[Rfam]
RNA sequence: GUGCAAUGACUGAUUUGGAUAAGUUUCGGCUGACUGAUUUGAUGCCAACUUUUAACUAUGCUGAGCAC
Numbered sequence: 001g002u003g004c005a006a007u008g009a010c011u012g013a014u015u016u017g018g019a020u021a022a023g024u025u026u027c028g029g030c031u032g033a034c035u036g037a038u039u040u041g042a043u044g045c046c047a048a049c050u051u052u053u054a055a056c057u058a059u060g061c062u063g064a065g066c067a068c
Stems, first nucleotide, its partner, number of pairs: 001068004
A member of the RNA family "Caenorhabditis snoRNA ceN108" from Caenorhabditis brenneri, 68 nucleotides long. NCBI's taxonomy places the organism under Eukaryota, Metazoa, Rhabditida, Rhabditoidea, Caenorhabditis. The match comes from Rfam's covariance-model search (77 bits).